[Rfam]
RNA sequence: ACACGAGAAAGGAGGUGGUCUGGAAGUGAUUGAUAUUCGGACGCGUGAGGUGACCAUCCGCUAGCAGUGUGACGACGGAAUUCACCCGCCGCACGCGGUAGGCGAAUCCCAGGUGGUCACCCGGCCCCCGAGCACCGGUCUGUCCGGACCGGAUCCGACAUUCGCGGAGGAAUUCCGUGGAGAGUCGGCGGCUCGGGGGUCGUUCUUG
Dot-bracket structure: .............((((((.................................))))))((((.((.((((......................)))).)).)))).................((((((((((((.((((((......))))))......................................))))))))))))......

A member of the RNA family "Actinobacteria sRNA Ms_IGR-5" from Rhodococcus sp. SMB37, 208 nucleotides long. Pairs were carried over by alignment from the consensus structure. A reference for the family is Li et al. (2013), "Identification of small RNAs in Mycobacterium smegmatis using heterologous Hfq", RNA. The source organism's lineage runs through Bacteria, Bacillati, Actinomycetes, Mycobacteriales and Rhodococcus. It scores 113 bits against the family's covariance model.